The family of this 185-nucleotide RNA sequence from Bacteroides faecichinchillae is "Bacteroides sRNA BTnc231". By type it is a small RNA.

RNA sequence: ACGUUUUUUUCAUAGAGAUUUAGAUUUAAGGUUAGAAGAAAUGUGGAAGUCGUGAGACUUCCCUUUUUUUCUUCUUAACGUUUGCUAUUCUUCAUUUUCUGAAUGUAUCGUUUUUUGUUGAGUACAGAAUGGACAUGCAGAAUAAGUAAACCAAAAAAGCCAUCUUCGGGAGAAGAGGCUUUUUU
Numbered sequence: 001a002c003g004u005u006u007u008u009u010u011c012a013u014a015g016a017g018a019u020u021u022a023g024a025u026u027u028a029a030g031g032u033u034a035g036a037a038g039a040a041a042u043g044u045g046g047a048a049g050u051c052g053u054g055a056g057a058c059u060u061c062c063c064u065u066u067u068u069u070u071c072u073u074c075u076u077a078a079c080g081u082u083u084g085c086u087a088u089u090c091u092u093c094a095u096u097u098u099c100u101g102a103a104u105g106u107a108u109c110g111u112u113u114u115u116u117g118u119u120g121a122g123u124a125c126a127g128a129a130u131g132g133a134c135a136u137g138c139a140g141a142a143u144a145a146g147u148a149a150a151c152c153a154a155a156a157a158a159g160c161c162a163u164c165u166u167c168g169g170g171a172g173a174a175g176a177g178g179c180u181u182u183u184u185u
Stems, first nucleotide, its partner, number of pairs: 026078006035071006045062007080152001082150002085146002087143005093137003154184008163176005